RNA sequence: CUUCUUAGGUAAUGCUGGAUAAGGGUCCCUUAAAGGGUAACCUCUAAGUGCAAAUCGGGUGAAUUGCUGGAACUUCCUAAAGCUCUGCUCCCUACAACGUAAUCCGAAAGGAUAGGCGUGAUAGGUUAAAAAACAGCAGAGAUGGAACAAUGGAUAAUCAGCAGCCAAGCUCCUGUUCCGAAAGGAUGGAGAAGGUUCAACGACUAGGGCGAACGGCCUACGGCAAUUGAGAAUUGAUAAUGGAGAAUUGAGAAUUAUAAAACUCAAUUGUACGGCUAUGAGGUCCGUAGGGGUAUGAGGUUCUCCGAAGUGCCCGACAACCGGAAAUAAAAUUGAAAAUUGAGAAUGGAAAAUUGAAAAUUAGUAAUAUAAUAAAAUUCAUUCUUAAAACCGGUUGAAGAUAUAGUCUGGCAAGUAUCGAAAGAUAUUU
Numbered sequence: 001c002u003u004c005u006u007a008g009g010u011a012a013u014g015c016u017g018g019a020u021a022a023g024g025g026u027c028c029c030u031u032a033a034a035g036g037g038u039a040a041c042c043u044c045u046a047a048g049u050g051c052a053a054a055u056c057g058g059g060u061g062a063a064u065u066g067c068u069g070g071a072a073c074u075u076c077c078u079a080a081a082g083c084u085c086u087g088c089u090c091c092c093u094a095c096a097a098c099g100u101a102a103u104c105c106g107a108a109a110g111g112a113u114a115g116g117c118g119u120g121a122u123a124g125g126u127u128a129a130a131a132a133a134c135a136g137c138a139g140a141g142a143u144g145g146a147a148c149a150a151u152g153g154a155u156a157a158u159c160a161g162c163a164g165c166c167a168a169g170c171u172c173c174u175g176u177u178c179c180g181a182a183a184g185g186a187u188g189g190a191g192a193a194g195g196u197u198c199a200a201c202g203a204c205u206a207g208g209g210c211g212a213a214c215g216g217c218c219u220a221c222g223g224c225a226a227u228u229g230a231g232a233a234u235u236g237a238u239a240a241u242g243g244a245g246a247a248u249u250g251a252g253a254a255u256u257a258u259a260a261a262a263c264u265c266a267a268u269u270g271u272a273c274g275g276c277u278a279u280g281a282g283g284u285c286c287g288u289a290g291g292g293g294u295a296u297g298a299g300g301u302u303c304u305c306c307g308a309a310g311u312g313c314c315c316g317a318c319a320a321c322c323g324g325a326a327a328u329a330a331a332a333u334u335g336a337a338a339a340u341u342g343a344g345a346a347u348g349g350a351a352a353a354u355u356g357a358a359a360a361u362u363a364g365u366a367a368u369a370u371a372a373u374a375a376a377a378u379u380c381a382u383u384c385u386u387a388a389a390a391c392c393g394g395u396u397g398a399a400g401a402u403a404u405a406g407u408c409u410g411g412c413a414a415g416u417a418u419c420g421a422a423a424g425a426u427a428u429u430u
Stems, first nucleotide, its partner, number of pairs: 002025006034043003055317004060312002065163006075154003164196002171189002177184001200409001202408005320395005328387003415428005
The family of this 430-nucleotide RNA from Thermohalobacter berrensis is "Group I catalytic intron". Rfam links the family to the GO term Group I intron splicing. Group I catalytic introns are large self-splicing ribozymes. They catalyse their own excision from mRNA, tRNA and rRNA precursors in a wide range of organisms. The organism belongs to Thermohalobacter, within Bacteria.